[Rfam]
RNA: SAM-I/IV (S-adenosyl methionine) riboswitch aptamer
Organism: Emticicia aquatilis
RNA sequence: UAUCGGUAUCAAGAAUUUCUAAUUAAUUUUAGAAAACCAACCGAGUCGCAAACGCUACGGUGGUCAAAAGAUGCGGGCUGUUCUAAAGUCAAAAAUGUUUUGUUUU
Numbered sequence: 001u002a003u004c005g006g007u008a009u010c011a012a013g014a015a016u017u018u019c020u021a022a023u024u025a026a027u028u029u030u031a032g033a034a035a036a037c038c039a040a041c042c043g044a045g046u047c048g049c050a051a052a053c054g055c056u057a058c059g060g061u062g063g064u065c066a067a068a069a070g071a072u073g074c075g076g077g078c079u080g081u082u083c084u085a086a087a088g089u090c091a092a093a094a095a096u097g098u099u100u101u102g103u104u105u106u
Stems, first nucleotide, its partner, number of pairs: 006074005017034005036064003041060003044056003050100003076090004
Dot-bracket structure: .....(((((......(((((........))))).(((..((((((...[[[.))).))).))).....))))).((((.......)))).......]]]......